[Rfam]
RNA sequence: AGUAAUUUAUUCGAUAUAAAACACUCAUAUCGAUAAAACGAUUUGAACUGAAC
Dot-bracket structure: ..........(((((((.........)))))))....................
RNA: Plastid-atpF group II-D1 intron
Organism: Dioscorea zingiberensis